[Rfam]
RNA sequence: UGCGUAUUUCGCAGCGGCGGAGUUCGACCGCCCGUUCCGCAAAUGAUCGCGUUCAUCGACGAUCACCGUGGCGUCUUGGUGUCGGGCCGAUCUGCGGGUUCUGGGGAUCGCCACCA
Numbered sequence: 001u002g003c004g005u006a007u008u009u010c011g012c013a014g015c016g017g018c019g020g021a022g023u024u025c026g027a028c029c030g031c032c033c034g035u036u037c038c039g040c041a042a043a044u045g046a047u048c049g050c051g052u053u054c055a056u057c058g059a060c061g062a063u064c065a066c067c068g069u070g071g072c073g074u075c076u077u078g079g080u081g082u083c084g085g086g087c088c089g090a091u092c093u094g095c096g097g098g099u100u101c102u103g104g105g106g107a108u109c110g111c112c113a114c115c116a
Base pairs, nucleotide, nucleotide: 016032017031018030019029020028077116078115079114080113081112088110089109091107092106093105095103096102097101